Shown here is a 177-nucleotide RNA sequence from Caldibacillus debilis, a member of the family "Lysine riboswitch aptamer".
The source organism's lineage runs through Bacteria, Bacillati, Bacilli, Caryophanales and Caldibacillus debilis.
Rfam describes the family as follows. Riboswitches are metabolite binding domains within certain messenger RNAs that serve as precision sensors for their corresponding targets. Allosteric rearrangement of mRNA structure is mediated by ligand binding, and this results in modulation of gene expression. This family includes riboswitches that sense lysine in a number of genes involved in lysine metabolism, including lysC.

RNA sequence: GGUGCAGAUAGAGGUGCGGGUCUUCAAGAGUAGAGGCUGGAGGAGAACGGGCUCCAAUGAAGGCUUUGAAAGGGGAGAACCGCCGAAGGACGUACGGGCCCUUUCCCGGCGUGCCUGGUCCUGUGGCCGAACAGGUGCAGGACUGUCAAGAGGAAUUCUUGGAGCGCUAUCUCACCU
Numbered sequence: 001g002g003u004g005c006a007g008a009u010a011g012a013g014g015u016g017c018g019g020g021u022c023u024u025c026a027a028g029a030g031u032a033g034a035g036g037c038u039g040g041a042g043g044a045g046a047a048c049g050g051g052c053u054c055c056a057a058u059g060a061a062g063g064c065u066u067u068g069a070a071a072g073g074g075g076a077g078a079a080c081c082g083c084c085g086a087a088g089g090a091c092g093u094a095c096g097g098g099c100c101c102u103u104u105c106c107c108g109g110c111g112u113g114c115c116u117g118g119u120c121c122u123g124u125g126g127c128c129g130a131a132c133a134g135g136u137g138c139a140g141g142a143c144u145g146u147c148a149a150g151a152g153g154a155a156u157u158c159u160u161g162g163a164g165c166g167c168u169a170u171c172u173c174a175c176c177u
Stems, first nucleotide, its partner, number of pairs: 006172006016083004021078004033067006087116003090112004096106002117144009127134001146162007